Shown here is a 200-nucleotide RNA sequence from Brachypodium distachyon, a member of the family "MIR159 microRNA precursor family".
On this family, see Jones-Rhoades and Bartel, Mol Cell 2004: "Computational identification of plant microRNAs and their targets, including a stress-induced miRNA".
Gene Ontology terms of the family: RISC complex and miRNA-mediated post-transcriptional gene silencing.

RNA sequence: GGGAGGAGGAGGGAGCACCCUUCAGUCCAAGCAACGGCGGCGCGAGAUCAAAGCUUUACCUCCCGCUUCAUUCACUCAUCUGCAAAGCUCUUUCUCAAAGGGCUAAACUUUUGCUCGGCAUGUGGAUGAAUGAGUCGGCAGCUAAUUCGAUCCUGGCACCGCCCGUGAGUGGACUGAAGGACGCUCUCUUCCGUCCAUCA
Numbered sequence: 001g002g003g004a005g006g007a008g009g010a011g012g013g014a015g016c017a018c019c020c021u022u023c024a025g026u027c028c029a030a031g032c033a034a035c036g037g038c039g040g041c042g043c044g045a046g047a048u049c050a051a052a053g054c055u056u057u058a059c060c061u062c063c064c065g066c067u068u069c070a071u072u073c074a075c076u077c078a079u080c081u082g083c084a085a086a087g088c089u090c091u092u093u094c095u096c097a098a099a100g101g102g103c104u105a106a107a108c109u110u111u112u113g114c115u116c117g118g119c120a121u122g123u124g125g126a127u128g129a130a131u132g133a134g135u136c137g138g139c140a141g142c143u144a145a146u147u148c149g150a151u152c153c154u155g156g157c158a159c160c161g162c163c164c165g166u167g168a169g170u171g172g173a174c175u176g177a178a179g180g181a182c183g184c185u186c187u188c189u190u191c192c193g194u195c196c197a198u199c200a
Stems, first nucleotide, its partner, number of pairs: 013186004019180002023176007036163001060141002063138003069132004077124003